Small nucleolar RNA SNORA73 family: a 187-nucleotide RNA sequence from Dipodomys ordii. The family's RNA type in Rfam is H/ACA-box small nucleolar RNA. U17 (SNORA73A and SNORA73B) also known as E1 belongs to the H/ACA class of small nucleolar RNAs (snoRNAs). Vertebrate U17 is intron-encoded and ranges in length from 200-230 nucleotides, longer than most snoRNAs. It is one of the most abundant snoRNAs in human cells and is essential for the cleavage of pre-rRNA within the 5' external transcribed spacer (ETS). This cleavage leads to the formation of 18S rRNA. Regions of the U17 RNA are complementary to rRNA and act as guides for RNA/RNA interactions, although these regions do not seem to be well conserved between organisms. It scores 118 bits against the family's covariance model. Its Rfam clan is "snR30-U17 clan". Pairs were carried over by alignment from the consensus structure, which is taken from published work. NCBI's taxonomy places the organism under Eukaryota, Deuterostomia, Vertebrata, Euteleostomi, Dipodomys. The literature on the family includes a 1996 paper in RNA by Enright et al., "5'ETS rRNA processing facilitated by four small RNAs: U14, E3, U17, and U3".
RNA sequence: CCAACAUGACCAUGCCUGGAGGUUACUCUUCCCAGGCUCUGUCCUCACGACCUAGGGAAGCACAGGGCUCUGCCCAAUGAUGUAUAAUCCCUUUCCACAAUGUUAGGUAUCUGCACCUGCAUAUUUCUGCAGCUUCCCAGAGUCCUGUGGACAAUGACUGGGGAGAUAAACCAUGCAGGAAACAGUC
Numbered sequence: 001c002c003a004a005c006a007u008g009a010c011c012a013u014g015c016c017u018g019g020a021g022g023u024u025a026c027u028c029u030u031c032c033c034a035g036g037c038u039c040u041g042u043c044c045u046c047a048c049g050a051c052c053u054a055g056g057g058a059a060g061c062a063c064a065g066g067g068c069u070c071u072g073c074c075c076a077a078u079g080a081u082g083u084a085u086a087a088u089c090c091c092u093u094u095c096c097a098c099a100a101u102g103u104u105a106g107g108u109a110u111c112u113g114c115a116c117c118u119g120c121a122u123a124u125u126u127c128u129g130c131a132g133c134u135u136c137c138c139a140g141a142g143u144c145c146u147g148u149g150g151a152c153a154a155u156g157a158c159u160g161g162g163g164a165g166a167u168a169a170a171c172c173a174u175g176c177a178g179g180a181a182a183c184a185g186u187c
Stems, first nucleotide, its partner, number of pairs: 001106001003104005008044001011041002015035001018029004049096001056091002059088001060085001062083003065078001116179007133165006142152004
Dot-bracket structure: (.((((((..((..(..((((....)))).....)....))..)....(......((.((.((((............)..))).)..).))....)...))))).).........(((((((..........((((((...((((...)))).......)))))).......)))))))........